[Rfam]
The record is a 141-nucleotide RNA sequence from Pelodiscus sinensis, which matches "U11 spliceosomal RNA" in Rfam. The source organism's lineage runs through Eukaryota, Deuterostomia, Amniota, Sauria and Pelodiscus. Rfam links the family to the GO terms mRNA 5'-splice site recognition, pre-mRNA 5'-splice site binding and U11 snRNP. The family's RNA type in Rfam is spliceosomal small nuclear RNA. A search with the family's covariance model found it, with a score of 119 bits.
RNA sequence: AAAAAGGGCUUCUGUCAUGUAUGACACAUGGAGUGGGGUGGCUGCGGCUUUCCUUACUUCGUGCGGAAUCGACAUCAAGAGAUUUCGGAAGCACAAUUUUUGCUCCUGGGGCUGCUGGUAAUCGUUGGUUCCGGCGCCCCG
Numbered sequence: 001a002a003a004a005a006g007g008g009c010u011u012c013u014g015u016c017a018u019g020u021a022u023g024a025c026a027c028a029u030g031g032a033g034u035g036g037g038g039u040g041g042c043u044g045c046g047g048c049u050u051u052c053c054u055u056a057c058u059u060c061g062u063g064c065g066g067a068a069u070c071g072a073c074a075u076c077a078a079g080a081g082a083u084u085u086c087g088g089a090a091g092c093a094c095a096a097u098u099u100u101u102g103c104u105c106c107u108g109g110g111g112c113u114g115c116u117g118g119u120a121a122u123c124g125u126u127g128g129u130u131c132c133g134g135c136g137c138c139c140c141g
Base pairs, nucleotide, nucleotide: 008092009091010090011089012088013026014025015024016023017022027063028062029061030060031059032058033057034056035055036054037053038052064087065086066085067084068083069082070081109139110138111137112136114135115134116133117132118131120130121129122128123127
Dot-bracket structure: .......((((((((((....)))))((((((((((((.............))))))))))))(((((((..........))))))))))))................((((.(((((.((((...)))))))))))))..
Record summary: The family's consensus secondary structure is taken from published work.